[Rfam]
Notes:
The family of this 76-nucleotide RNA from Ameiurus melas is "mir-7563 microRNA precursor family". A search with the family's covariance model found it, with a score of 83 bits.
RNA sequence: ACCGCGUACUUACCUACUAUAUAGUAGCUCAGAUACAUGUAUUUCUCCCACUAUAUAGUAGGCAAGUACGCGGUUC
Number, nucleotide and partner (000 for none) at each position: 001a074002c073003c072004g071005c070006g069007u068008a067009c066010u065011u064012a000013c062014c061015u060016a000017c058018u057019a056020u055021a054022u053023a052024g051025u050026a000027g048028c000029u000030c000031a044032g000033a042034u041035a040036c000037a000038u000039g000040u035041a034042u033043u000044u031045c000046u000047c000048c027049c000050a025051c024052u023053a022054u021055a020056u019057a018058g017059u000060a015061g014062g013063c000064a011065a010066g009067u008068a007069c006070g005071c004072g003073g002074u001075u000076c000

Gene Ontology terms of the family: RISC complex and miRNA-mediated post-transcriptional gene silencing.